[Rfam]
The record is a 77-nucleotide RNA sequence from Dinothrombium tinctorium, which matches "mir-92 microRNA precursor family" in Rfam. NCBI's taxonomy places the organism under Eukaryota, Bilateria, Prostigmata, Trombidioidea, Dinothrombium.

RNA sequence: AGUCUUCAGCAGGUUGGGAUCGGUGACAGUAUUGAGUGAAUGCGAAUAUUGCACUUGUCCCGGCCUGUUGCGGCUGA
Numbered sequence: 001a002g003u004c005u006u007c008a009g010c011a012g013g014u015u016g017g018g019a020u021c022g023g024u025g026a027c028a029g030u031a032u033u034g035a036g037u038g039a040a041u042g043c044g045a046a047u048a049u050u051g052c053a054c055u056u057g058u059c060c061c062g063g064c065c066u067g068u069u070g071c072g073g074c075u076g077a
Stems, first nucleotide, its partner, number of pairs: 004073002009068006016061005022055003027051007
From the family's description: This family represents the microRNA precursor mir-92. Human miR-92 has two predicted hairpin precursor sequences: mir-92-1 on chromosome 13 and mir-92-2 on chromosome X. miR-92 has also been cloned from mouse embryonic stem cells. The mature sequence is excised from the 3' arm of the hairpin. Its family is annotated with miRNA-mediated post-transcriptional gene silencing and RISC complex in the Gene Ontology.